[Rfam]
The family of this 83-nucleotide RNA from Strongylocentrotus purpuratus is "mir-4850 microRNA precursor family". Its family is annotated with miRNA-mediated post-transcriptional gene silencing and RISC complex in the Gene Ontology. NCBI's taxonomy places the organism under Eukaryota, Echinodermata, Eleutherozoa, Camarodonta, Strongylocentrotus.

RNA sequence: GAAGAUCGUUUAUCAUGACUGUAAACAGGAGGGGCCCAAGGAUUUAAGCCACUCCUGUGUUGACAUUCAUGAUGUUUGACUUU
Numbered sequence: 001g002a003a004g005a006u007c008g009u010u011u012a013u014c015a016u017g018a019c020u021g022u023a024a025a026c027a028g029g030a031g032g033g034g035c036c037c038a039a040g041g042a043u044u045u046a047a048g049c050c051a052c053u054c055c056u057g058u059g060u061u062g063a064c065a066u067u068c069a070u071g072a073u074g075u076u077u078g079a080c081u082u083u
Stems, first nucleotide, its partner, number of pairs: 001083004006079003011074008020065003025058001027056005033050003038045002